[Rfam]
RNA sequence: UUUCAGCAUCAAGAGUCGGGCCGACGUCCGACACCAACCUGCCUACCGGGCAAGGUGGUGCCUCCAGCAAGGAGGGAUGUGGCCGAACCGGCAACAAAACGGGUUUCC
Numbered sequence: 001u002u003u004c005a006g007c008a009u010c011a012a013g014a015g016u017c018g019g020g021c022c023g024a025c026g027u028c029c030g031a032c033a034c035c036a037a038c039c040u041g042c043c044u045a046c047c048g049g050g051c052a053a054g055g056u057g058g059u060g061c062c063u064c065c066a067g068c069a070a071g072g073a074g075g076g077a078u079g080u081g082g083c084c085g086a087a088c089c090g091g092c093a094a095c096a097a098a099a100c101g102g103g104u105u106u107c108c
Stems, first nucleotide, its partner, number of pairs: 006080005015032001017030005033059003038055003041051003045104003082092004
The family of this 108-nucleotide RNA sequence from Sphingomonas sp. IC081 is "SAM-I/IV (S-adenosyl methionine) riboswitch aptamer". Taxonomically the source falls in Sphingomonas (Bacteria, Pseudomonadati, Alphaproteobacteria, Sphingomonadales). Its Rfam clan is "SAM clan". It scores 61 bits against the family's covariance model. For this family Rfam cites "The aptamer core of SAM-IV riboswitches mimics the ligand-binding site of SAM-I riboswitches" (Weinberg et al., RNA, 2008).